[Rfam]
RNA: Archaeal large subunit ribosomal RNA, nucleotides 542 to 638
Organism: Natronosalvus rutilus
RNA sequence: GACGGGGCAUACAAGGUCCCUCUCACAAUGAACCAGGUGCGAACCUGUAGUAAGCCGGGAGGGAAGCCGGUGUUCCGUCGUACGUUUUGAAAAACGA
Numbered sequence: 001g002a003c004g005g006g007g008c009a010u011a012c013a014a015g016g017u018c019c020c021u022c023u024c025a026c027a028a029u030g031a032a033c034c035a036g037g038u039g040c041g042a043a044c045c046u047g048u049a050g051u052a053a054g055c056c057g058g059g060a061g062g063g064a065a066g067c068c069g070g071u072g073u074u075c076c077g078u079c080g081u082a083c084g085u086u087u088u089g090a091a092a093a094a095c096g097a
Stems, first nucleotide, its partner, number of pairs: 001079010015068002019062006029053001034047005083096003